[Rfam]
RNA sequence: AUCCUGGUGCAAGGGGCGAUAUGUAUGUCAGUGAAGCCUCGGCCGAGACUACCCUUUGGUGAUUGAAAAUCUGCCGUCGACUGACUCCGAGUUAUCUUCGAACGAACUCGGGAAUAUUUUGAUCCGGCCUCUGUCG
Number, nucleotide and partner (000 for none) at each position: 001a000002u000003c000004c000005u000006g000007g000008u000009g000010c000011a000012a000013g000014g000015g000016g000017c000018g000019a000020u000021a000022u000023g052024u051025a050026u000027g049028u048029c047030a000031g000032u000033g000034a000035a000036g043037c042038c000039u000040c000041g000042g037043c036044c000045g000046a000047g029048a028049c027050u025051a024052c023053c000054c000055u000056u000057u000058g000059g000060u000061g000062a000063u000064u000065g000066a000067a000068a000069a000070u000071c000072u000073g000074c000075c000076g000077u000078c000079g000080a000081c000082u000083g000084a000085c000086u112087c111088c110089g109090a108091g107092u106093u105094a000095u000096c000097u101098u000099c000100g000101a097102a000103c000104g000105a093106a092107c091108u090109c089110g088111g087112g086113a000114a000115u000116a000117u000118u000119u000120u000121g000122a000123u000124c000125c136126g135127g134128c133129c000130u000131c000132u000133g128134u127135c126136g125